[Rfam]
RNA sequence: UAACAGUGAUGAUUCAGGAGGUUGCCGGACUUCCGGGUAAUUCCUGAUGAAUAUGUCUGGGUCUGGAACCCGGCGACGG
Dot-bracket structure: .............(((.(((....((((....))))....))).)))......((((...(((........))))))).